[Rfam]
RNA sequence: UGGAGUCUGAUUCAAUGAUUCGAUCCACUCGCCUACUAAGCCUACUACUAAACGCAUCUCAUUUGCGCGGUAGGCUUGUGGGCGGAAUCAAUCACUGAUUCAGACUUGCAAAACUUAAAAAACCCGCGCCAAUGCGCGGGUUUUUUU
Numbered sequence: 001u002g003g004a005g006u007c008u009g010a011u012u013c014a015a016u017g018a019u020u021c022g023a024u025c026c027a028c029u030c031g032c033c034u035a036c037u038a039a040g041c042c043u044a045c046u047a048c049u050a051a052a053c054g055c056a057u058c059u060c061a062u063u064u065g066c067g068c069g070g071u072a073g074g075c076u077u078g079u080g081g082g083c084g085g086a087a088u089c090a091a092u093c094a095c096u097g098a099u100u101c102a103g104a105c106u107u108g109c110a111a112a113a114c115u116u117a118a119a120a121a122a123c124c125c126g127c128g129c130c131a132a133u134g135c136g137c138g139g140g141u142u143u144u145u146u147u
Base pairs, nucleotide, nucleotide: 003107005105007103008102009101010100012098013097014096016094017093018092029085030084031083032082033081034080035079036078038076045073046072047071048070049069053067054066055065056064119144120143121142122141123140124139125138126137127136128135129134